[Rfam]
RNA sequence: CAAACCGCCAAAGUGUCUGUGAAAUGUUUCGAUUAUCAAAUUAAAAAUAUCGAUCUGAUAAAAUUUUCAUAUCACAGCCAGCUUUGGUGAGUUUGG
Dot-bracket structure: .....((((((((((.((((((..(((.........................................))))))))).)).)))))))).......
The family of this 96-nucleotide RNA from Sarcoptes scabiei is "mir-2 microRNA precursor family". A search with the family's covariance model found it, with a score of 58 bits. A reference for the family is Lee and Ambros (2001), "An extensive class of small RNAs in Caenorhabditis elegans", Science. Pairs were carried over by alignment from the consensus structure, which was predicted with PFOLD.